A member of the RNA family "Small nucleolar RNA SNORA14" from Esox lucius, 126 nucleotides long. A search with the family's covariance model found it, with a score of 41 bits. The base pairs follow the family's consensus structure, which was predicted with RNAfold. Rfam classes the family as an H/ACA-box small nucleolar RNA.

[Rfam]
RNA sequence: GCGCGUCCUUAUUAAACCCCCUAGUUGCUAAUCGUAGCUUCUGGGACAAGGAAGGAUGCUAGAUCAAACUAGAGAUCCAAAUCCGAGAGGCUUGUCAGUGUCUCUCGGUUAUUUCAGCUCUAGGAU
Numbered sequence: 001g002c003g004c005g006u007c008c009u010u011a012u013u014a015a016a017c018c019c020c021c022u023a024g025u026u027g028c029u030a031a032u033c034g035u036a037g038c039u040u041c042u043g044g045g046a047c048a049a050g051g052a053a054g055g056a057u058g059c060u061a062g063a064u065c066a067a068a069c070u071a072g073a074g075a076u077c078c079a080a081a082u083c084c085g086a087g088a089g090g091c092u093u094g095u096c097a098g099u100g101u102c103u104c105u106c107g108g109u110u111a112u113u114u115c116a117g118c119u120c121u122a123g124g125a126u
Stems, first nucleotide, its partner, number of pairs: 003059004010052001012050002020045005027038002063126003069123005081110001083108005089102002093098001